[Rfam]
RNA sequence: GAAAGCGGAACAUCUACUAAAAACCGCCACGUCCUGUGGCGAACAUAGACGUCAGCACUGCCUGCGCA
Numbered sequence: 001g002a003a004a005g006c007g008g009a010a011c012a013u014c015u016a017c018u019a020a021a022a023a024c025c026g027c028c029a030c031g032u033c034c035u036g037u038g039g040c041g042a043a044c045a046u047a048g049a050c051g052u053c054a055g056c057a058c059u060g061c062c063u064g065c066g067c068a
Stems, first nucleotide, its partner, number of pairs: 011051001013049004026040005055067002058064001

A member of the RNA family "Bacillaceae-1 RNA" from Niallia endozanthoxylica, 68 nucleotides long.
By type it is a small RNA.
The family's consensus secondary structure is taken from published work.
Lineage of the source: Bacteria > Bacillati > Bacillota > Caryophanales > Niallia.